RNA sequence: CUACGCUCUCACAGAAUAUCUCCGUGAAAUAGCAGUAUAUAAUGCUGUUUCAUAUGA
Dot-bracket structure: ..........[[............(((((((((.]].......))))))))).....
This 57-nucleotide RNA from Parnassius apollo belongs to the Rfam family "Coronavirus 3' UTR pseudoknot".
About the family: Coronaviruses are plus-strand RNA viruses with ~30kb genomes. The 3' UTR region of coronavirus genomes contains a conserved ~55nt pseudoknot structure which has been shown to be necessary for viral genome replication. The mechanism of cis-regulation is unclear, but this element is postulated to function in the plus-strand.
Gene Ontology term of the family: viral genome replication.
A search with the family's covariance model found it, with a score of 37 bits.
Clan: Coronavirus 3' UTR.
Rfam classes the family as a cis-regulatory element.